[Rfam]
The record is a 54-nucleotide RNA from Oscillatoria sp. FACHB-1406, which matches "Nitrogen stress-induced RNA 1" in Rfam.
Rfam classes the family as a small RNA.
NCBI's taxonomy places the organism under Bacteria, Cyanobacteriota, Oscillatoriophycideae, Oscillatoriaceae, Oscillatoria.
RNA sequence: UGGUAGAUGCACCCUGGUUAAUUCUCCUCUGACCGAACGUCAGGGGAUUUUUUU
Numbered sequence: 001u002g003g004u005a006g007a008u009g010c011a012c013c014c015u016g017g018u019u020a021a022u023u024c025u026c027c028u029c030u031g032a033c034c035g036a037a038c039g040u041c042a043g044g045g046g047a048u049u050u051u052u053u054u
Base pairs, nucleotide, nucleotide: 002013003012004011026046027045028044029043030042031041032040033039
Background:
The match comes from Rfam's covariance-model search (51 bits).